[Rfam]
RNA sequence: GCCCCCGUAGCUCAGUGGAUAGAGCAAUCGUUUCCUAAACGAUGUGCCGGAAGUUCGAUUCUUCUCGGGGGUG
Numbered sequence: 001g002c003c004c005c006c007g008u009a010g011c012u013c014a015g016u017g018g019a020u021a022g023a024g025c026a027a028u029c030g031u032u033u034c035c036u037a038a039a040c041g042a043u044g045u046g047c048c049g050g051a052a053g054u055u056c057g058a059u060u061c062u063u064c065u066c067g068g069g070g071g072u073g
Base pairs, nucleotide, nucleotide: 001072002071003070004069005068006067007066010025011024012023013022027043028042029041030040031039049065050064051063052062053061
Dot-bracket structure: (((((((..((((........)))).(((((.......))))).....(((((.......)))))))))))).